Shown here is a 386-nucleotide sequence from Wallemia ichthyophaga, a member of the family "Nuclear RNase P". Lineage of the source: Eukaryota > Fungi > Wallemiales > Wallemiaceae > Wallemia. It is annotated as a ribozyme. It scores 85 bits against the family's covariance model.
RNA sequence: GCAGCUUAAAGGGCUCGUAUGCUUCUUCACAGACGGGCAGUCGAUAGUGCUGCCAGACAACGGAAGCGGGUAAGGUCUGAGAGUUCAAACUCCCCCAGUCAGUCAACUCGAGACGGGUUGAACGAUAAUUCGUUGAGCGGCGCACCAGAAAAGCACUCCUGUGUGGCUUAGCUGAAGAGGGCUAUACGUGCGUCGUACGUGUUGGCAAGAGGCGACGAUAGCUGCAGCUGGGAGCUGGGAACACGUCGUGGGAGUCGCACUGUCAGUCUCUUAUGGUUUGAGAAAAGCGCGUACACCUACAUUGGUGUAUUCGUUACACUGUCAGUGCUUAAGUGCACUACGAGCCGUCCAAUUGGAAAACUCGAUUCAGACUACUCUUUGGCUGC
Numbered sequence: 001g002c003a004g005c006u007u008a009a010a011g012g013g014c015u016c017g018u019a020u021g022c023u024u025c026u027u028c029a030c031a032g033a034c035g036g037g038c039a040g041u042c043g044a045u046a047g048u049g050c051u052g053c054c055a056g057a058c059a060a061c062g063g064a065a066g067c068g069g070g071u072a073a074g075g076u077c078u079g080a081g082a083g084u085u086c087a088a089a090c091u092c093c094c095c096c097a098g099u100c101a102g103u104c105a106a107c108u109c110g111a112g113a114c115g116g117g118u119u120g121a122a123c124g125a126u127a128a129u130u131c132g133u134u135g136a137g138c139g140g141c142g143c144a145c146c147a148g149a150a151a152a153g154c155a156c157u158c159c160u161g162u163g164u165g166g167c168u169u170a171g172c173u174g175a176a177g178a179g180g181g182c183u184a185u186a187c188g189u190g191c192g193u194c195g196u197a198c199g200u201g202u203u204g205g206c207a208a209g210a211g212g213c214g215a216c217g218a219u220a221g222c223u224g225c226a227g228c229u230g231g232g233a234g235c236u237g238g239g240a241a242c243a244c245g246u247c248g249u250g251g252g253a254g255u256c257g258c259a260c261u262g263u264c265a266g267u268c269u270c271u272u273a274u275g276g277u278u279u280g281a282g283a284a285a286a287g288c289g290c291g292u293a294c295a296c297c298u299a300c301a302u303u304g305g306u307g308u309a310u311u312c313g314u315u316a317c318a319c320u321g322u323c324a325g326u327g328c329u330u331a332a333g334u335g336c337a338c339u340a341c342g343a344g345c346c347g348u349c350c351a352a353u354u355g356g357a358a359a360a361c362u363c364g365a366u367u368c369a370g371a372c373u374a375c376u377c378u379u380u381g382g383c384u385g386c
Base pairs, nucleotide, nucleotide: 001386002385003384004383008379009378012346013345014344015343016342017341018340020068021067022066023065024064036054037053038052039051040050041049077370078369079368080367081366091253092252093251094250105119106118107117108116109115121134122133123132124131125130137249138248139247140246141245142244156234157233158232159231160230161229348357349356350355